[Rfam]
RNA: mir-374 microRNA precursor family
RNA sequence: ACUCAGAUGUAUAUAAUACAACCUGGUAAGUGGCCCAGCACUUACCAGGUUGUACUAUCAUUGUUUGCACC
Numbered sequence: 001a002c003u004c005a006g007a008u009g010u011a012u013a014u015a016a017u018a019c020a021a022c023c024u025g026g027u028a029a030g031u032g033g034c035c036c037a038g039c040a041c042u043u044a045c046c047a048g049g050u051u052g053u054a055c056u057a058u059c060a061u062u063g064u065u066u067g068c069a070c071c
Stems, first nucleotide, its partner, number of pairs: 013058003017054005023048003027044006